A member of the RNA family "Bacterial large subunit ribosomal RNA", 264 nucleotides of a longer RNA.
The family has 102 seed sequences and 51,934 matches in Rfam 15.1.
The base pairs follow the family's consensus structure, which is taken from published work.

[Rfam]
RNA sequence: GGAAGUUUGAAGGGGGCUGCUCCUAGUACGAGAGGACCGGAGUGGACGAACCUCUGGUGUACCGGUUGUCACGCCAGUGGCAUUGCCGGGUAGCUAUGUUCGGAAGAGAUAACCGCUGAAAGCAUCUAAGCGGGAAACUCGCCUUAAGAUGAGACUUCCCAGGAGCUUGACUCCUUUAAAGGGUCGUUCGAGACCAGGACGUUGAUAGGUCAGGUGUGGAAGCGCAGUAAUGCGUUAAGCUAACUGAUACUAAUUGCCCGUAAG
Numbered sequence: 001g002g003a004a005g006u007u008u009g010a011a012g013g014g015g016g017c018u019g020c021u022c023c024u025a026g027u028a029c030g031a032g033a034g035g036a037c038c039g040g041a042g043u044g045g046a047c048g049a050a051c052c053u054c055u056g057g058u059g060u061a062c063c064g065g066u067u068g069u070c071a072c073g074c075c076a077g078u079g080g081c082a083u084u085g086c087c088g089g090g091u092a093g094c095u096a097u098g099u100u101c102g103g104a105a106g107a108g109a110u111a112a113c114c115g116c117u118g119a120a121a122g123c124a125u126c127u128a129a130g131c132g133g134g135a136a137a138c139u140c141g142c143c144u145u146a147a148g149a150u151g152a153g154a155c156u157u158c159c160c161a162g163g164a165g166c167u168u169g170a171c172u173c174c175u176u177u178a179a180a181g182g183g184u185c186g187u188u189c190g191a192g193a194c195c196a197g198g199a200c201g202u203u204g205a206u207a208g209g210u211c212a213g214g215u216g217u218g219g220a221a222g223c224g225c226a227g228u229a230a231u232g233c234g235u236u237a238a239g240c241u242a243a244c245u246g247a248u249a250c251u252a253a254u255u256g257c258c259c260g261u262a263a264g
Stems, first nucleotide, its partner, number of pairs: 001159008011145004017045007047102005055096003062089005067082006106140003113133005162174003178261001181259004185201005206252003209248005216240001219236001222235005